Rfam assigns this 264-nucleotide part of an RNA from uncultured bacterium 70 to the family "Bacterial large subunit ribosomal RNA". For this family Rfam cites "Crystal structure of the ribosome at 5.5 A resolution" (Yusupov et al., Science, 2001). It is one of the family's seed sequences. Pairs were carried over by alignment from the consensus structure, which is taken from published work.
[Rfam]
RNA sequence: GGAAGUUUGAGUGGGGCUGACCUUAGUACGAGAGGACCGGGUUGGACGGACCUCUAGUGUACCGGUUGUCGCGCCAGCGGCAGCGCCGGGUAGCUACGUUCGGAAGGGAGAAACGCUGAAGGCAUCUAAGCGUGAAACCCUCCACAAGAUGAGACUUCCCUGGAUCGCAAGAUCCCUAAAGGCUCCUGGAAGAUGACCAGGUCGAUAGGUCGGGUGUGUAAGCGCGGUGACGCGUUGAGCUUACCGAUACUAAUCAGCCGUGAG
Numbered sequence: 001g002g003a004a005g006u007u008u009g010a011g012u013g014g015g016g017c018u019g020a021c022c023u024u025a026g027u028a029c030g031a032g033a034g035g036a037c038c039g040g041g042u043u044g045g046a047c048g049g050a051c052c053u054c055u056a057g058u059g060u061a062c063c064g065g066u067u068g069u070c071g072c073g074c075c076a077g078c079g080g081c082a083g084c085g086c087c088g089g090g091u092a093g094c095u096a097c098g099u100u101c102g103g104a105a106g107g108g109a110g111a112a113a114c115g116c117u118g119a120a121g122g123c124a125u126c127u128a129a130g131c132g133u134g135a136a137a138c139c140c141u142c143c144a145c146a147a148g149a150u151g152a153g154a155c156u157u158c159c160c161u162g163g164a165u166c167g168c169a170a171g172a173u174c175c176c177u178a179a180a181g182g183c184u185c186c187u188g189g190a191a192g193a194u195g196a197c198c199a200g201g202u203c204g205a206u207a208g209g210u211c212g213g214g215u216g217u218g219u220a221a222g223c224g225c226g227g228u229g230a231c232g233c234g235u236u237g238a239g240c241u242u243a244c245c246g247a248u249a250c251u252a253a254u255c256a257g258c259c260g261u262g263a264g
Stems, first nucleotide, its partner, number of pairs: 001159008011145004017045007047102005055096003062089005067082006106140003113133005162176002178261001181259004185201005206252003209248005214242001216240001222235005